[Rfam]
RNA sequence: CAACUUGAGAGUUUGAUCCUGGCUCAGAACGAACGCUGGCGGCAGGCUUAACACAUGCAAGUCGAGCGCCUUGGCAACAAGGAGCGGCAGACGGGUGAGUAACGCGUGGGAAUCUACCCAACCCUACGGAACAACUCCGGGAAACUGGAGCUAAUACCGUAUACGCCCUUAUGGGGAAAGAUUUAUCGGGGAUGGAUGAGCCCGCGUUGGAUUAGCUAGUUGGUGGGGUAAAGGCCUACCAAGGCGACGAUCCAUAGCUGGUCUGAGAGGAUGAUCAGCCACAUUGGGACUGAGACACGGCCCAAACUCCUACGGGAGGCAGCAGUGGGGAAUAUUGGACAAUGGGCGCAAGCCUGAUCCAGCCAUGCCGCGUGUGUGAUGAAGGCCUUAGGGUUGUAAAGCACUUUCACCGGAGAAGAUAAUGACGGUAUCCGGAGAAGAAGCCCCGGCUAACUUCGUGCCAGCAGCCGCGGUAAUACGAAGGGGGCUAGCGUUGUUCGGAAUUACUG
Numbered sequence: 001c002a003a004c005u006u007g008a009g010a011g012u013u014u015g016a017u018c019c020u021g022g023c024u025c026a027g028a029a030c031g032a033a034c035g036c037u038g039g040c041g042g043c044a045g046g047c048u049u050a051a052c053a054c055a056u057g058c059a060a061g062u063c064g065a066g067c068g069c070c071u072u073g074g075c076a077a078c079a080a081g082g083a084g085c086g087g088c089a090g091a092c093g094g095g096u097g098a099g100u101a102a103c104g105c106g107u108g109g110g111a112a113u114c115u116a117c118c119c120a121a122c123c124c125u126a127c128g129g130a131a132c133a134a135c136u137c138c139g140g141g142a143a144a145c146u147g148g149a150g151c152u153a154a155u156a157c158c159g160u161a162u163a164c165g166c167c168c169u170u171a172u173g174g175g176g177a178a179a180g181a182u183u184u185a186u187c188g189g190g191g192a193u194g195g196a197u198g199a200g201c202c203c204g205c206g207u208u209g210g211a212u213u214a215g216c217u218a219g220u221u222g223g224u225g226g227g228g229u230a231a232a233g234g235c236c237u238a239c240c241a242a243g244g245c246g247a248c249g250a251u252c253c254a255u256a257g258c259u260g261g262u263c264u265g266a267g268a269g270g271a272u273g274a275u276c277a278g279c280c281a282c283a284u285u286g287g288g289a290c291u292g293a294g295a296c297a298c299g300g301c302c303c304a305a306a307c308u309c310c311u312a313c314g315g316g317a318g319g320c321a322g323c324a325g326u327g328g329g330g331a332a333u334a335u336u337g338g339a340c341a342a343u344g345g346g347c348g349c350a351a352g353c354c355u356g357a358u359c360c361a362g363c364c365a366u367g368c369c370g371c372g373u374g375u376g377u378g379a380u381g382a383a384g385g386c387c388u389u390a391g392g393g394u395u396g397u398a399a400a401g402c403a404c405u406u407u408c409a410c411c412g413g414a415g416a417a418g419a420u421a422a423u424g425a426c427g428g429u430a431u432c433c434g435g436a437g438a439a440g441a442a443g444c445c446c447c448g449g450c451u452a453a454c455u456u457c458g459u460g461c462c463a464g465c466a467g468c469c470g471c472g473g474u475a476a477u478a479c480g481a482a483g484g485g486g487g488c489u490a491g492c493g494u495u496g497u498u499c500g501g502a503a504u505u506a507c508u509g
Stems, first nucleotide, its partner, number of pairs: 009025005027499004032495006039371006045364002047329001052327003056324003061088003066085002069082005095282003104207007113199002118195003122191003126160004135150006166175003180187002208254003215245003220242008257279004261272004284305005307318004335361001337360003343356005374404004384395004408440001410435005418426001443488005454483005464471002